[Rfam]
RNA: Flavo-1 RNA
Organism: Flavobacterium micromati
RNA sequence: CAUUAAUUCCGCGUGAGGGAUAGCAGUGAAAAUCCUUUUUGUAUCGUUAAUAAACGACACAAAAAGAUUGUAACGUAUUGCCCGACCCGAC
Numbered sequence: 001c002a003u004u005a006a007u008u009c010c011g012c013g014u015g016a017g018g019g020a021u022a023g024c025a026g027u028g029a030a031a032a033u034c035c036u037u038u039u040u041g042u043a044u045c046g047u048u049a050a051u052a053a054a055c056g057a058c059a060c061a062a063a064a065a066g067a068u069u070g071u072a073a074c075g076u077a078u079u080g081c082c083c084g085a086c087c088c089g090a091c
Base pairs, nucleotide, nucleotide: 017083018082019081022078026074027073031069032068033067034066037064038063039062040061041060042059044057045056046055047054048053